Shown here is an 86-nucleotide sequence from Dufourea novaeangliae, a member of the family "mir-932 microRNA precursor family". The organism belongs to Dufourea, within Eukaryota. Gene Ontology terms of the family: RISC complex and miRNA-mediated post-transcriptional gene silencing.

RNA sequence: UGCUUCUUCAAUUCCGUAGUGCAUUGCAGUCGAUUAUUCGAUUAACGAGAGAGAAGCUGCAAGCACCGCGGGAAUGAGGCAGCCUC
Numbered sequence: 001u002g003c004u005u006c007u008u009c010a011a012u013u014c015c016g017u018a019g020u021g022c023a024u025u026g027c028a029g030u031c032g033a034u035u036a037u038u039c040g041a042u043u044a045a046c047g048a049g050a051g052a053g054a055a056g057c058u059g060c061a062a063g064c065a066c067c068g069c070g071g072g073a074a075u076g077a078g079g080c081a082g083c084c085u086c
Stems, first nucleotide, its partner, number of pairs: 006079005013072005020065003024062007